A member of the RNA family "SAM riboswitch aptamer (S box leader)" from Sporolactobacillus laevolacticus, 109 nucleotides long.
A search with the family's covariance model found it, with a score of 82 bits.
Lineage of the source: Bacteria > Bacilli > Caryophanales > Sporolactobacillaceae > Sporolactobacillus laevolacticus.
[Rfam]
RNA sequence: UUCUUAUCCAGAGUGGCGGAGGGACUGGCCCAAAGAAACCCGACAACCAGCAUGUAGUUCAUGUAUGGUGUUAAUUCCAGGAGCACAAUUUGUGUUCAAAAGAUAAGAA
Number, nucleotide and partner (000 for none) at each position: 001u109002u108003c107004u106005u105006a104007u103008c102009c000010a000011g000012a000013g041014u000015g040016g039017c000018g000019g000020a000021g031022g030023g029024a000025c080026u079027g078028g077029c023030c022031c021032a000033a000034a000035g000036a000037a000038a000039c016040c015041c013042g072043a071044c070045a069046a000047c068048c067049a000050g064051c063052a062053u061054g000055u000056a000057g000058u000059u000060c000061a053062u052063g051064u050065a000066u000067g048068g047069u045070g044071u043072u042073a000074a000075u000076u101077c028078c027079a026080g025081g097082a096083g095084c094085a093086c092087a000088a000089u000090u000091u000092g086093u085094g084095u083096u082097c081098a000099a000100a000101a076102g008103a007104u006105a005106a004107g003108a002109a001